[Rfam]
RNA sequence: UGACAGCGAAGCAAUUUGCUGUGAUCGCAAUGCAGAAAUCAGCAGAGGGCAUAGUAAAUGAGACUCUUGCUCAUUGAAGGCC
Numbered sequence: 001u002g003a004c005a006g007c008g009a010a011g012c013a014a015u016u017u018g019c020u021g022u023g024a025u026c027g028c029a030a031u032g033c034a035g036a037a038a039u040c041a042g043c044a045g046a047g048g049g050c051a052u053a054g055u056a057a058a059u060g061a062g063a064c065u066c067u068u069g070c071u072c073a074u075u076g077a078a079g080g081c082c
Stems, first nucleotide, its partner, number of pairs: 001023002004021007039046002048082003057075006
Shown here is an 82-nucleotide RNA sequence, a member of the family "Group II catalytic intron D1-D4-1". The pairing is the family consensus, mapped onto this sequence. Group II introns are found in rRNA, tRNA and mRNA of organelles in fungi, plants and protists, and also in mRNA in bacteria. Rfam's curators put it in the seed alignment.